The family of this 356-nucleotide RNA from Conchiformibius kuhniae is "Bacterial RNase P class A". The family is grouped with related families in Rfam's "RNaseP clan". Lineage of the source: Bacteria > Pseudomonadati > Betaproteobacteria > Neisseriales > Conchiformibius.
[Rfam]
RNA sequence: CAGGCAGGGCAGACAGCCGCCGCGUGGCAACACGGGGAGGAAAGUCCGGGCUGCACAGGGCAGGAUGCCGGCUAACGCCGAAAGGUACGGCAACGUAACGGAAAGUGAAGCAGAAAGCCAAACCGCCGACGGCUUCCGCAAGGAAGAUUCGGGCAAGGGUGAAAAGGUGCGGUAAGAGCGCACCGCGCGCUUGGCAACAAUGCGCGGCAGGUCAAACCCCAUCCGCAGCAAGAGCAAACAGAACGCAUUGACGCGAGCCGCCGAGCGUUCGGGUAGCUUGCUUGAGCCUGCCGGCAACGGCAGCGCAAGAGAAUGGCUGUCCACGACAGAACCCGGCUUACCGCCCAGCCUGUUUU
Numbered sequence: 001c002a003g004g005c006a007g008g009g010c011a012g013a014c015a016g017c018c019g020c021c022g023c024g025u026g027g028c029a030a031c032a033c034g035g036g037g038a039g040g041a042a043a044g045u046c047c048g049g050g051c052u053g054c055a056c057a058g059g060g061c062a063g064g065a066u067g068c069c070g071g072c073u074a075a076c077g078c079c080g081a082a083a084g085g086u087a088c089g090g091c092a093a094c095g096u097a098a099c100g101g102a103a104a105g106u107g108a109a110g111c112a113g114a115a116a117g118c119c120a121a122a123c124c125g126c127c128g129a130c131g132g133c134u135u136c137c138g139c140a141a142g143g144a145a146g147a148u149u150c151g152g153g154c155a156a157g158g159g160u161g162a163a164a165a166g167g168u169g170c171g172g173u174a175a176g177a178g179c180g181c182a183c184c185g186c187g188c189g190c191u192u193g194g195c196a197a198c199a200a201u202g203c204g205c206g207g208c209a210g211g212u213c214a215a216a217c218c219c220c221a222u223c224c225g226c227a228g229c230a231a232g233a234g235c236a237a238a239c240a241g242a243a244c245g246c247a248u249u250g251a252c253g254c255g256a257g258c259c260g261c262c263g264a265g266c267g268u269u270c271g272g273g274u275a276g277c278u279u280g281c282u283u284g285a286g287c288c289u290g291c292c293g294g295c296a297a298c299g300g301c302a303g304c305g306c307a308a309g310a311g312a313a314u315g316g317c318u319g320u321c322c323a324c325g326a327c328a329g330a331a332c333c334c335g336g337c338u339u340a341c342c343g344c345c346c347a348g349c350c351u352g353u354u355u356u
Base pairs, nucleotide, nucleotide: 001352002351003350004349005348007346008345009344010343012321013320014319015318016317017316018315020037021036023034024033025032026031042339043338044337046336047335048334049333050332051228052227053226054225058258061255063224064223065222066221067220068084069080070079071078072077085099086097087096088095089094100219101218105217106216107213108212123158124157125154126153127152130151131150132149134147135146166184167183168182169181170180171179185208186206187205188204189203190202191200192199193198232279233278234277235276241270242269243268244267245266246265252260253259288303289302290301291300292299293298
Dot-bracket structure: (((((.((((.(((((((.((.((((....)))).))....[[[.[[[[[((((...[..[.((((((((((....))))...)(((((....)))).)((...((((..............(((((..(((.((..........)).))))))..)).......((((((.......))))))(((((((((....))).))))).)...))..)))))))))))))...((((.....((((((.....((.]..]))....)))))).....))))........((((((....))))))...........)))))))..........]]]]]]]]...)))).)))))....